[Rfam]
RNA sequence: CAAUAUUUUCAUAGCUUUUCUCGUAUAUAUGCAGGAAUUGGCCGCAUGUUUCUACCUGAUCGCCGGAAAUGAUCAGACUACGAGGAAGAACCCUAACUCG
Numbered sequence: 001c002a003a004u005a006u007u008u009u010c011a012u013a014g015c016u017u018u019u020c021u022c023g024u025a026u027a028u029a030u031g032c033a034g035g036a037a038u039u040g041g042c043c044g045c046a047u048g049u050u051u052c053u054a055c056c057u058g059a060u061c062g063c064c065g066g067a068a069a070u071g072a073u074c075a076g077a078c079u080a081c082g083a084g085g086a087a088g089a090a091c092c093c094u095a096a097c098u099c100g
Stems, first nucleotide, its partner, number of pairs: 018086008029047004034043002056076007
Rfam assigns this 100-nucleotide RNA sequence from Paenibacillus anaericanus to the family "Purine riboswitch aptamer". Its family is annotated with purine nucleobase biosynthetic process in the Gene Ontology. It scores 72 bits against the family's covariance model. Riboswitches are metabolite binding domains within certain messenger RNAs that serve as precision sensors for their corresponding targets. Taxonomically the source falls in Paenibacillus (Bacteria, Bacillati, Bacilli, Paenibacillaceae).